[Rfam]
RNA sequence: CGCCUCAGCAUUACAGGUCCCUUGGCAGCUGUAUAAAUUGAUGCCGCUCCACAGGAUACCCAUUGAGGCCAGA
Numbered sequence: 001c002g003c004c005u006c007a008g009c010a011u012u013a014c015a016g017g018u019c020c021c022u023u024g025g026c027a028g029c030u031g032u033a034u035a036a037a038u039u040g041a042u043g044c045c046g047c048u049c050c051a052c053a054g055g056a057u058a059c060c061c062a063u064u065g066a067g068g069c070c071a072g073a
Base pairs, nucleotide, nucleotide: 002069003068004067005066006065007064017057018056019055020054025047026046028044029043

Shown here is a 73-nucleotide RNA sequence from Trypanosoma rangeli, a member of the family "Trypanosomatid snoRNA TB6Cs1H4". A reference for the family is Liang et al. (2005), "A genome-wide analysis of C/D and H/ACA-like small nucleolar RNAs in Trypanosoma brucei reveals a trypanosome-specific pattern of rRNA modification", RNA. A search with the family's covariance model found it, with a score of 85 bits. Rfam classes the family as an H/ACA-box small nucleolar RNA. The family has 4 seed sequences and 72 matches in Rfam 15.1.